[Rfam]
RNA sequence: GGUCGCUUAGCUCAGCGGGAGAGCGUCCCCUUCACACGGGGAAGGUCAUAGGUUCAAUCCCUAUAGCGACCA
Numbered sequence: 001g002g003u004c005g006c007u008u009a010g011c012u013c014a015g016c017g018g019g020a021g022a023g024c025g026u027c028c029c030c031u032u033c034a035c036a037c038g039g040g041g042a043a044g045g046u047c048a049u050a051g052g053u054u055c056a057a058u059c060c061c062u063a064u065a066g067c068g069a070c071c072a
Stems, first nucleotide, its partner, number of pairs: 001071007010024004026042005048064005
RNA: tRNA